[Rfam]
RNA sequence: AAUCAAGAGUCCCGACCACUGGCCCUGGCCGGUCGGGCGGCAACCCUCCACACCAUAGUGGGGUGCCCCAGGUGAGGAUUCGACGCCGUCGGCACCUGCCGGGGCGUAAGUAUGGCGG
Numbered sequence: 001a002a003u004c005a006a007g008a009g010u011c012c013c014g015a016c017c018a019c020u021g022g023c024c025c026u027g028g029c030c031g032g033u034c035g036g037g038c039g040g041c042a043a044c045c046c047u048c049c050a051c052a053c054c055a056u057a058g059u060g061g062g063g064u065g066c067c068c069c070a071g072g073u074g075a076g077g078a079u080u081c082g083a084c085g086c087c088g089u090c091g092g093c094a095c096c097u098g099c100c101g102g103g104g105c106g107u108a109a110g111u112a113u114g115g116c117g118g
Stems, first nucleotide, its partner, number of pairs: 001080004009038001011037006021030002039067003044063003048058001083107005089102005
Annotation:
The family of this 118-nucleotide sequence from Arthrobacter sp. PAMC 25486 is "SAM (S-adenosyl methionine) riboswitch aptamer". Rfam describes the family as follows. SAM-IV is a mRNA element that regulates gene expression via direct sensing of S-adenosylmethionine (SAM or AdoMet). SAM-IV riboswitches share conserved nucleotide positions with the previously described SAM-I riboswitches sequence analysis and molecular recognition experiments suggest that SAM-I and SAM-IV riboswitches share similar ligand binding sites, but have different scaffolds. Taxonomically the source falls in Arthrobacter (Bacteria, Bacillati, Actinomycetota, Actinomycetes).